[Rfam]
RNA sequence: UGGGUAGACGAAUUGACCCCAACUGAAGUUCAAUUCUAACGUUAAAAGGAGUUUUAUAUG
Numbered sequence: 001u002g003g004g005u006a007g008a009c010g011a012a013u014u015g016a017c018c019c020c021a022a023c024u025g026a027a028g029u030u031c032a033a034u035u036c037u038a039a040c041g042u043u044a045a046a047a048g049g050a051g052u053u054u055u056a057u058a059u060g
Stems, first nucleotide, its partner, number of pairs: 001021004010036007
A member of the RNA family "DUF2815 RNA", 60 nucleotides long. The sequence is in the family's curated seed alignment. Rfam classes the family as a small RNA.